This 132-nucleotide sequence from Hibiscus trionum belongs to the Rfam family "Small nucleolar RNA snoR74". It is annotated as an H/ACA-box small nucleolar RNA. Pairs were carried over by alignment from the consensus structure, which was predicted with WAR. Gene Ontology terms of the family: RNA processing and nucleolus.
RNA sequence: AAAAAAGCAGUGACUUGUUGCCUUUUGUGAACUAGUUUCUCGUAAACUUCAGGAAAAUUACUUGUGCGUUGUUCUUGGGUGAACCUCUGGAUUUUUUUGGUGCCUGAAGGUUCAGUAAAUGAUGCUACAUUU
Numbered sequence: 001a002a003a004a005a006a007g008c009a010g011u012g013a014c015u016u017g018u019u020g021c022c023u024u025u026u027g028u029g030a031a032c033u034a035g036u037u038u039c040u041c042g043u044a045a046a047c048u049u050c051a052g053g054a055a056a057a058u059u060a061c062u063u064g065u066g067c068g069u070u071g072u073u074c075u076u077g078g079g080u081g082a083a084c085c086u087c088u089g090g091a092u093u094u095u096u097u098u099g100g101u102g103c104c105u106g107a108a109g110g111u112u113c114a115g116u117a118a119a120u121g122a123u124g125c126u127a128c129a130u131u132u
Stems, first nucleotide, its partner, number of pairs: 005049003012037001014035002017032001066125008080114007